[Rfam]
RNA sequence: CAAAGUUGAAUAUGCUGACCGUAGACAGUAGGUGCUACAAAUGCUUAAUUUCCUACCGAGGUGUUAUGAUAAAGUCUUGUAUUGAAUUGCUAUGCAAAUUCUAUUACAGUCAUCAUGCCUUCGUAGUUUCUACGGAGGCUUUUUUAAUGCUUCG
Numbered sequence: 001c002a003a004a005g006u007u008g009a010a011u012a013u014g015c016u017g018a019c020c021g022u023a024g025a026c027a028g029u030a031g032g033u034g035c036u037a038c039a040a041a042u043g044c045u046u047a048a049u050u051u052c053c054u055a056c057c058g059a060g061g062u063g064u065u066a067u068g069a070u071a072a073a074g075u076c077u078u079g080u081a082u083u084g085a086a087u088u089g090c091u092a093u094g095c096a097a098a099u100u101c102u103a104u105u106a107c108a109g110u111c112a113u114c115a116u117g118c119c120u121u122c123g124u125a126g127u128u129u130c131u132a133c134g135g136a137g138g139c140u141u142u143u144u145u146a147a148u149g150c151u152u153c154g
Base pairs, nucleotide, nucleotide: 028056029055030054031053032052034044035043117139118138119137120136121135122134123133124132125131126130

Shown here is a 154-nucleotide RNA sequence from Paenibacillus selenitireducens, a member of the family "Ribosomal protein L10 leader". Rfam describes the family as follows. This family is a putative r-protein leader autoregulatory structure found in B. subtilis and other low-GC Gram-positive bacteria. It is located in the 5' untranslated regions of mRNAs encoding ribosomal proteins L10 and L12 (rplJ-rplL). A Rho-independent transcription terminator structure that is probably involved in regulation is included at the 3' end. Taxonomically the source falls in Paenibacillus (Bacteria, Bacillota, Caryophanales, Paenibacillaceae). For this family Rfam cites "Diverse mechanisms for regulating ribosomal protein synthesis in Escherichia coli" (Zengel and Lindahl, Prog Nucleic Acid Res Mol Biol, 1994).